[Rfam]
RNA: HDV ribozyme from F. prausnitzii
Organism: Argiope bruennichi
RNA sequence: GAGGAACUCUGGUAGCCCACCUCCACGUGGUGUUCCUCGGGCAACGCUGUUAUUUUAAUUUUAACAGCGGCUGAGAGGCUACC
Number, nucleotide and partner (000 for none) at each position: 001g038002a037003g036004g035005a034006a033007c032008u000009c000010u000011g000012g000013u000014a000015g000016c000017c000018c000019a031020c030021c029022u000023c000024c000025a000026c000027g000028u000029g021030g020031u019032g007033u006034u005035c004036c003037u002038c001039g000040g000041g000042c000043a000044a000045c069046g068047c067048u066049g065050u064051u063052a062053u000054u000055u000056u000057a000058a000059u000060u000061u000062u052063a051064a050065c049066a048067g047068c046069g045070g000071c000072u000073g000074a000075g000076a000077g000078g000079c000080u000081a000082c000083c000